[Rfam]
RNA sequence: AGAUGAGAGAUACACCCGCUCACAGGGGACUGUGGGCGGCAUCAGGGCGGGGCCUCCCCAGCUUCGACCUGGUCGUGCCCUCGCGCACAACCGGAGCCGAAAGGCUCCGGGUCUCCUCACCGAUCGGA
Numbered sequence: 001a002g003a004u005g006a007g008a009g010a011u012a013c014a015c016c017c018g019c020u021c022a023c024a025g026g027g028g029a030c031u032g033u034g035g036g037c038g039g040c041a042u043c044a045g046g047g048c049g050g051g052g053c054c055u056c057c058c059c060a061g062c063u064u065c066g067a068c069c070u071g072g073u074c075g076u077g078c079c080c081u082c083g084c085g086c087a088c089a090a091c092c093g094g095a096g097c098c099g100a101a102a103g104g105c106u107c108c109g110g111g112u113c114u115c116c117u118c119a120c121c122g123a124u125c126g127g128a
Stems, first nucleotide, its partner, number of pairs: 004119004009115002016039010041073006048066006075088004091110008120127002

Rfam assigns this 128-nucleotide sequence from Streptomyces sp. AS58 to the family "Streptomyces RNA 5676". From the family's description: Identified by deep sequencing of transcriptome at the end of exponential growth phase. Appears longer on northern blot than sequencing transcript. On this family, see Vockenhuber et al., RNA Biol 2011: "Deep sequencing-based identification of small non-coding RNAs in Streptomyces coelicolor". The pairing is the family consensus, mapped onto this sequence. NCBI's taxonomy places the organism under Bacteria, Bacillati, Actinomycetota, Actinomycetes, Streptomyces.